A member of the RNA family "Bacterial large signal recognition particle RNA" from Cuneatibacter caecimuris, 263 nucleotides long. The source organism's lineage runs through Bacteria, Bacillati, Clostridia, Lachnospiraceae and Cuneatibacter.
RNA sequence: CCGCGCAGCCGGGGAAUUAGCGGAGCCUUGUACCUGCAACCCGCUACAGCAGGGGUGAUAUUCCGUCUGAGGGCUGCCUUCUGUGGGGCUGCCCCUGGUAAGUGGCGUUGAAGCCUGGGUCUUGCGCAACGGAAAUCCAUGAACCGUGUCAGGUCAGGAAUGGAGCAGCACUAAGUGGAACCUUCCGUGUGCCGUGAGGUCGCCUGGGCAGAGUUAACUGCCAGGGUAACGCCUGUGGAAGCAGUUCGAAGCGGAAUGCGCGG
Dot-bracket structure: ((((((.(((((((..((...))..))))...(((((...........)))))))).....(((((.(..(((((..((((((((((..((..((((((..(((((......((((((((((((((((.(((((.(((((.....((((....(((....)))....))))...)))))...)))))))...))))))...))))))))...))).)).)))))).))...)))))))))).))))).).)))))..))))))